Notes: Lysine riboswitch aptamer: a 175-nucleotide RNA sequence from Clostridium frigidicarnis. A search with the family's covariance model found it, with a score of 122 bits. From the family's description: Riboswitches are metabolite binding domains within certain messenger RNAs that serve as precision sensors for their corresponding targets. The family's consensus secondary structure is taken from published work.
[Rfam]
RNA sequence: UUAGUAGAUAGAGGUGCAGUAAUUAAAAGUAAUUCUACAGAGUUAAGCACUAUGAAGUAGGAUGAAAGGAAUUAUUGCCGAAGUGUACAACUAAUGCUUUAAGGUUGUAUCACUGGCUUUGUGCAAAACAUGUACAGGGUUGUCACAAAUUCGUUUGUGGAGAGCUAUCACGUGG
Numbered sequence: 001u002u003a004g005u006a007g008a009u010a011g012a013g014g015u016g017c018a019g020u021a022a023u024u025a026a027a028a029g030u031a032a033u034u035c036u037a038c039a040g041a042g043u044u045a046a047g048c049a050c051u052a053u054g055a056a057g058u059a060g061g062a063u064g065a066a067a068g069g070a071a072u073u074a075u076u077g078c079c080g081a082a083g084u085g086u087a088c089a090a091c092u093a094a095u096g097c098u099u100u101a102a103g104g105u106u107g108u109a110u111c112a113c114u115g116g117c118u119u120u121g122u123g124c125a126a127a128a129c130a131u132g133u134a135c136a137g138g139g140u141u142g143u144c145a146c147a148a149a150u151u152c153g154u155u156u157g158u159g160g161a162g163a164g165c166u167a168u169c170a171c172g173u174g175g
Stems, first nucleotide, its partner, number of pairs: 007169005016078009032063007082114004086109007115141011143160007